[Rfam]
RNA: mir-71 microRNA precursor family
RNA sequence: CCUAUGUGAAAGACAUGGGUAGUGAGAUGUUUCAUACACUUCACCUUACUACUCUGUCUUUUGCAUGGCA
Numbered sequence: 001c002c003u004a005u006g007u008g009a010a011a012g013a014c015a016u017g018g019g020u021a022g023u024g025a026g027a028u029g030u031u032u033c034a035u036a037c038a039c040u041u042c043a044c045c046u047u048a049c050u051a052c053u054c055u056g057u058c059u060u061u062u063g064c065a066u067g068g069c070a
Base pairs, nucleotide, nucleotide: 008062009061010060011059012058013057014056015055017054018053019052021050022049023048024047025046026045028043029042